[Rfam]
RNA sequence: GCCGAGCUUAGUAAUGUGAGCUUGUAACCCAAAUGGGGGCAUUAAUGUGAUGGGACAUGGUCAUAGCCAUCUCGGUCGGGUCAUGGUUGGCUUAAGGCUGGCCCGCCCUAUCCAAGUUGGGAGUUGGUUCAUGUGGUUCAGGCGUAGGCAUGACUCUCAUGGACCCUAAAGUGGAGGGGACCGCGUGAGGCUGGUUUCACAGAGCAACGAAAACCUCCCGCCCCUGUCAGUGGAAGGAUAACGGGCUUGCGCCUUCUUGGCCCAUUAGUACUUAGUUGGCUUAGACCUUAAAUGGACCAUCACUUUU
Numbered sequence: 001g002c003c004g005a006g007c008u009u010a011g012u013a014a015u016g017u018g019a020g021c022u023u024g025u026a027a028c029c030c031a032a033a034u035g036g037g038g039g040c041a042u043u044a045a046u047g048u049g050a051u052g053g054g055a056c057a058u059g060g061u062c063a064u065a066g067c068c069a070u071c072u073c074g075g076u077c078g079g080g081u082c083a084u085g086g087u088u089g090g091c092u093u094a095a096g097g098c099u100g101g102c103c104c105g106c107c108c109u110a111u112c113c114a115a116g117u118u119g120g121g122a123g124u125u126g127g128u129u130c131a132u133g134u135g136g137u138u139c140a141g142g143c144g145u146a147g148g149c150a151u152g153a154c155u156c157u158c159a160u161g162g163a164c165c166c167u168a169a170a171g172u173g174g175a176g177g178g179g180a181c182c183g184c185g186u187g188a189g190g191c192u193g194g195u196u197u198c199a200c201a202g203a204g205c206a207a208c209g210a211a212a213a214c215c216u217c218c219c220g221c222c223c224c225u226g227u228c229a230g231u232g233g234a235a236g237g238a239u240a241a242c243g244g245g246c247u248u249g250c251g252c253c254u255u256c257u258u259g260g261c262c263c264a265u266u267a268g269u270a271c272u273u274a275g276u277u278g279g280c281u282u283a284g285a286c287c288u289u290a291a292a293u294g295g296a297c298c299a300u301c302a303c304u305u306u307u
Stems, first nucleotide, its partner, number of pairs: 001040003004023007028037003044306002047303007056294002058290003061285002065281002068278002071275002074272003078263006085256002089253002092251001098249001100247006107237002111234004116228001118226004123221002126165008135156002138153003142149002166171001173218005184209003191202003
Dot-bracket structure: ((((((((((......)))))))....(((....))))))...((.(((((((..(((((((..((.((.((.(((.((((((.((..((.(.....(.((((((.((..((((.(.((((.((.((((((((.((.(((.((....)).))).)).))))))))(....).(((((......(((....(((......)))....)))....))))).)).)))).)..)))).))....)))))).).))).)).))))))......))).)).)).))..))..)))..))..))))))).)).
Rfam assigns this 307-nucleotide RNA sequence from Spinacia oleracea to the family "Plant signal recognition particle RNA". The organism belongs to Spinacia, within Eukaryota. Pairs were carried over by alignment from the consensus structure, which is taken from published work. Rfam links the family to the GO terms SRP-dependent cotranslational protein targeting to membrane, signal sequence recognition and signal recognition particle, endoplasmic reticulum targeting.